[Rfam]
RNA sequence: AAGAACUACUAGGGGGGCCCUAUAGAGGGGGCUGAGAAGAAGCAAAUAGCUUCUGACUCUUAUUGACCUGAUCUGGUUAAGACCAGCGGAGGGAAGUAGUAGAGAGAUUUU
Numbered sequence: 001a002a003g004a005a006c007u008a009c010u011a012g013g014g015g016g017g018c019c020c021u022a023u024a025g026a027g028g029g030g031g032c033u034g035a036g037a038a039g040a041a042g043c044a045a046a047u048a049g050c051u052u053c054u055g056a057c058u059c060u061u062a063u064u065g066a067c068c069u070g071a072u073c074u075g076g077u078u079a080a081g082a083c084c085a086g087c088g089g090a091g092g093g094a095a096g097u098a099g100u101a102g103a104g105a106g107a108u109u110u111u
Stems, first nucleotide, its partner, number of pairs: 006099005011060004016054001017032005039053005067092003073086004